[Rfam]
Nucleotides: 474
Base pairs, nucleotide, nucleotide: 003056004055007052008051014043015042016041017040018032019031020030021029022028058288059287060286061285062284067283068282069281081265082264083263084262085261087258088257089256090255095249096248097247098246105239106238107237108236110234111233112232113231114230115229117123118122126208127207128206129205130204131203132202133201134200135171136170137169138168140166141165150163151162152161153160154159172182173181174180185199186198187197188196209228210227211226212225213224214223215222295431296430297429298428299427309359310358311357312356315351316350317349318348322346323345324344325343326342361411362410363409364408365407366406432452433451434450435449436448438447439446440445
Number, partner (000 for none) and nucleotide at each position: 001000u002000u003056g004055c005000a006000g007052a008051u009000c010000u011000u012000c013000a014043c015042c016041c017040c018032u019031c020030c021029a022028g023000g024000c025000u026000u027000u028022c029021u030020g031019g032018a033000c034000u035000c036000g037000c038000c039000a040017g041016g042015g043014g044000u045000g046000g047000a048000g049000u050000a051008g052007u053000a054000g055004g056003c057000g058288c059287a060286c061285u062284g063000u064000c065000u066000a067283a068282g069281u070000g071000a072000a073000g074000g075000u076000a077000g078000c079000a080000g081265u082264g083263u084262u085261g086000u087258u088257g089256g090255c091000g092000a093000a094000g095249a096248g097247u098246u099000g100000u101000g102000g103000a104000c105239c106238u107237a108236c109000u110234u111233u112232g113231a114230g115229u116000u117123u118122g119000u120000a121000g122118c123117g124000a125000u126208c127207a128206u129205c130204c131203a132202g133201a134200g135171c136170u137169a138168g139000c140166g141165g142000a143000u144000c145000u146000c147000c148000c149000c150163a151162c152161g153160c154159g155000g156000u157000a158000a159154c160153g161152c162151g163150u164000g165141c166140c167000u168138c169137u170136a171135g172182g173181c174180c175000c176000a177000a178000a179000a180174g181173g182172c183000a184000c185199g186198g187197u188196g189000u190000u191000c192000a193000c194000a195000g196188c197187a198186c199185c200134c201133u202132u203131u204130g205129g206128a207127u208126g209228g210227c211226g212225g213224g214223g215222g216000u217000g218000c219000c220000c221000c222215c223214c224213u225212c226211c227210g228209c229115a230114c231113u232112u233111a234110a235000a236108g237107u238106a239105g240000a241000a242000a243000a244000a245000c246098a247097g248096c249095u250000u251000a252000g253000u254000a255090g256089u257088c258087a259000a260000a261085u262084a263083a264082c265081a266000u267000g268000g269000c270000u271000u272000u273000c274000c275000u276000c277000a278000a279000g280000c281069a282068u283067u284062c285061a286060g287059u288058g289000c290000u291000a292000c293000a294000u295431g296430g297429g298428a299427c300000u301000g302000a303000a304000g305000g306000a307000u308000g309359c310358c311357c312356a313000g314000a315351a316350g317349g318348u319000a320000c321000c322346c323345g324344c325343a326342g327000g328000c329000a330000a331000c332000g333000a334000u335000a336000a337000g338000c339000u340000c341000a342326c343325u344324g345323u346322g347000g348318a349317u350316c351315u352000g353000a354000u355000c356312u357311g358310g359309g360000g361411c362410c363409c364408u365407g366406g367000g368000c369000c370000a371000g372000g373000u374000g375000c376000u377000a378000u379000a380000c381000a382000c383000c384000u385000g386000g387000u388000u389000a390000a391000a392000a393000c394000c395000a396000a397000a398000u399000c400000u401000g402000g403000u404000a405000g406366u407365c408364a409363g410362g411361g412000u413000u414000a415000a416000a417000a418000a419000a420000c421000g422000u423000c424000u425000a426000a427299g428298u429297c430296c431295c432452a433451c434450c435449c436448c437000c438447c439446c440445g441000g442000g443000g444000a445440c446439g447438g448436g449435g450434g451433g452432u453000u454000c455000c456000c457000u458000u459000a460000a461000a462000c463000c464000c465000u466000c467000a468000a469000c470000u471000g472000a473000c474000a